[Rfam]
Shown here is a 190-nucleotide sequence from Secundilactobacillus mixtipabuli, a member of the family "6S / SsrS RNA". Rfam classes the family as a non-coding RNA gene. A search with the family's covariance model found it, with a score of 57 bits. Pairs were carried over by alignment from the consensus structure, which is taken from published work.
RNA sequence: UAAGUUCUAGGGUGUGCGCGUUGUCCACAUACGUGUUUGCCGAACAACUAAUGUUACUUUGGGACAUGGGUUAACUUUACCGGAUUGCAGGCCUUUUACACUUGGUAGCAUGAACGUAAAUAUACCCGUCCCACCUGCUUAUGAGCGGGCCAAAACCUAUCGGACAAUUAACGGCACUAUUAGAUCUUCA
Numbered sequence: 001u002a003a004g005u006u007c008u009a010g011g012g013u014g015u016g017c018g019c020g021u022u023g024u025c026c027a028c029a030u031a032c033g034u035g036u037u038u039g040c041c042g043a044a045c046a047a048c049u050a051a052u053g054u055u056a057c058u059u060u061g062g063g064a065c066a067u068g069g070g071u072u073a074a075c076u077u078u079a080c081c082g083g084a085u086u087g088c089a090g091g092c093c094u095u096u097u098a099c100a101c102u103u104g105g106u107a108g109c110a111u112g113a114a115c116g117u118a119a120a121u122a123u124a125c126c127c128g129u130c131c132c133a134c135c136u137g138c139u140u141a142u143g144a145g146c147g148g149g150c151c152a153a154a155a156c157c158u159a160u161c162g163g164a165c166a167a168u169u170a171a172c173g174g175c176a177c178u179a180u181u182a183g184a185u186c187u188u189c190a
Stems, first nucleotide, its partner, number of pairs: 002188003006184005012177004017173002035156002037153003040149002061132003065128001068125001070123001072122001076120005087109002092105002